[Rfam]
RNA sequence: AUUCGACUAGACGAGUAUAAAUAGGUGUCAGGUCUAGUGCGGCAGGGUUCUUCCCUGCAUCAUA
Number, nucleotide and partner (000 for none) at each position: 001a016002u015003u014004c013005g000006a038007c037008u036009a035010g034011a033012c000013g004014a003015g002016u001017a000018u000019a000020a000021a000022u000023a000024g000025g063026u062027g061028u000029c000030a000031g000032g040033u011034c010035u009036a008037g007038u006039g000040c032041g000042g058043c057044a056045g055046g054047g053048u000049u000050c000051u000052u000053c047054c046055c045056u044057g043058c042059a000060u000061c027062a026063u025064a000